The record is a 164-nucleotide RNA from Streptomyces sp. AVP053U2, which matches "c-di-AMP riboswitch aptamer (ydaO/yuaA leader)" in Rfam. Pairs were carried over by alignment from the consensus structure. Rfam 15.1 lists 7,607 matches to the family in 2,262 species.
RNA sequence: AGCCUUCACACUCUGACCCGCGUACGGCAGGAGCGGGGGACCCACAGGUACGACUGCCUGUUCCGGUCUCCGGAACGGCUUGGGGUUAAGCCGCGUCUCGACGCGGCCGGGCAUCUCCAGUCCGAACCCGACAGCUCACCUCGUAGGCGCCGGAGAGGAAUUCG
Number, nucleotide and partner (000 for none) at each position: 001a000002g148003c147004c146005u000006u000007c000008a000009c031010a000011c000012u000013c000014u000015g000016a000017c000018c000019c000020g000021c000022g000023u000024a000025c000026g000027g000028c000029a000030g000031g009032a000033g144034c143035g142036g141037g140038g139039g000040a000041c000042c000043c082044a081045c000046a000047g000048g000049u000050a000051c000052g000053a000054c000055u000056g000057c000058c000059u000060g000061u000062u000063c000064c000065g000066g000067u000068c000069u000070c000071c000072g000073g000074a000075a000076c000077g000078g000079c000080u000081u044082g043083g129084g128085g127086u000087u000088a000089a000090g000091c106092c105093g104094c103095g000096u000097c000098u000099c000100g000101a000102c000103g094104c093105g092106g091107c000108c000109g123110g122111g121112c120113a000114u000115c000116u000117c000118c000119a000120g112121u111122c110123c109124g000125a000126a000127c085128c084129c083130g000131a000132c000133a000134g000135c000136u000137c000138a000139c038140c037141u036142c035143g034144u033145a000146g004147g003148c002149g000150c000151c000152g000153g000154a000155g000156a000157g000158g000159a000160a000161u000162u000163c000164g000